[Rfam]
RNA sequence: ACAGGAAAAUGACCUAUGACUUGACAGACGGUGUGGCUGAGUGCCUGUCAUUUCUGUAGGCCAAUAUCCUGU
Numbered sequence: 001a002c003a004g005g006a007a008a009a010u011g012a013c014c015u016a017u018g019a020c021u022u023g024a025c026a027g028a029c030g031g032u033g034u035g036g037c038u039g040a041g042u043g044c045c046u047g048u049c050a051u052u053u054c055u056g057u058a059g060g061c062c063a064a065u066a067u068c069c070u071g072u
Base pairs, nucleotide, nucleotide: 001072002071003070004069005068006067008065010063011062013060014059015058016057018054019053022050023049024048025047026046027045029043030042
This 72-nucleotide RNA from Jaculus jaculus belongs to the Rfam family "mir-192/215 microRNA precursor family". It scores 66 bits against the family's covariance model. Gene Ontology terms of the family: miRNA-mediated post-transcriptional gene silencing and RISC complex. Rfam 15.1 lists 810 matches to the family in 628 species.